[Rfam]
RNA sequence: GAGUAUAAUCAAUUUUGUUGUUGUAUAUGUCUGAGAGAUGGUCAGACGUUUCUACAAACUACCGAUUUAGUUAACUACGACAACUUCUUCUUAGAAC
Numbered sequence: 001g002a003g004u005a006u007a008a009u010c011a012a013u014u015u016u017g018u019u020g021u022u023g024u025a026u027a028u029g030u031c032u033g034a035g036a037g038a039u040g041g042u043c044a045g046a047c048g049u050u051u052c053u054a055c056a057a058a059c060u061a062c063c064g065a066u067u068u069a070g071u072u073a074a075c076u077a078c079g080a081c082a083a084c085u086u087c088u089u090c091u092u093a094g095a096a097c
Stems, first nucleotide, its partner, number of pairs: 018083008029047006057072005
Dot-bracket structure: .................((((((((...((((((.......)))))).........(((((......)))))...))))))))..............
RNA: Purine riboswitch aptamer
Organism: Lachnospiraceae bacterium XBD2001